This 261-nucleotide part of an RNA from Candidatus Nitrosotenuis cloacae belongs to the Rfam family "Archaeal large subunit ribosomal RNA". The match comes from Rfam's covariance-model search (2716 bits). Taxonomically the source falls in Candidatus Nitrosotenuis (Archaea, Thermoproteati, Nitrososphaerota).
RNA sequence: GGCUAUUUGAGGGGAAGUUGCUCCGAGUACGAGAGGAACAGAGCAGCGUGGCCACUGGUUUACCGGUUGUCUGACAAGGCAGGCCGGGCAGCUAAGCCAUCUGGGCUAAGCGCUGAAAGCAUCUAAGCGCGAAACCCUUCCUGAAACAAAAUAGCCUUUCUUAGGAUGAAGGUCGGCAGUAGAAGACUGCAUUGAUAGGAUGGAGGUAUAGAUCACAAGCUUCGGCGAGUGGUGAGCCUGCCAUUACUAAUAGACCAACGC
Numbered sequence: 001g002g003c004u005a006u007u008u009g010a011g012g013g014g015a016a017g018u019u020g021c022u023c024c025g026a027g028u029a030c031g032a033g034a035g036g037a038a039c040a041g042a043g044c045a046g047c048g049u050g051g052c053c054a055c056u057g058g059u060u061u062a063c064c065g066g067u068u069g070u071c072u073g074a075c076a077a078g079g080c081a082g083g084c085c086g087g088g089c090a091g092c093u094a095a096g097c098c099a100u101c102u103g104g105g106c107u108a109a110g111c112g113c114u115g116a117a118a119g120c121a122u123c124u125a126a127g128c129g130c131g132a133a134a135c136c137c138u139u140c141c142u143g144a145a146a147c148a149a150a151a152u153a154g155c156c157u158u159u160c161u162u163a164g165g166a167u168g169a170a171g172g173u174c175g176g177c178a179g180u181a182g183a184a185g186a187c188u189g190c191a192u193u194g195a196u197a198g199g200a201u202g203g204a205g206g207u208a209u210a211g212a213u214c215a216c217a218a219g220c221u222u223c224g225g226c227g228a229g230u231g232g233u234g235a236g237c238c239u240g241c242c243a244u245u246a247c248u249a250a251u252a253g254a255c256c257a258a259c260g261c
Stems, first nucleotide, its partner, number of pairs: 001156008011142004017047007048100005056094003063087005068081005103137003110130005171256004176190004196249003199245005204239003209234001212233005219226001